A member of the RNA family "Trypanosomatid snoRNA TB9Cs4H1" from Phytomonas sp. Hart1, 66 nucleotides long. The family's consensus secondary structure was predicted with WAR. The family's RNA type in Rfam is H/ACA-box small nucleolar RNA. The match comes from Rfam's covariance-model search (54 bits). The family has 4 seed sequences and 39 matches in Rfam 15.1. Its family is annotated with nucleolus and RNA processing in the Gene Ontology.
RNA sequence: CGAGGUCUACGUGUACCCCACGAGCCCUGUUAAUAGAUGGCGCGCCGGGGAAUGGAACAGACCGAG
Numbered sequence: 001c002g003a004g005g006u007c008u009a010c011g012u013g014u015a016c017c018c019c020a021c022g023a024g025c026c027c028u029g030u031u032a033a034u035a036g037a038u039g040g041c042g043c044g045c046c047g048g049g050g051a052a053u054g055g056a057a058c059a060g061a062c063c064g065a066g
Stems, first nucleotide, its partner, number of pairs: 004063005016050004024041003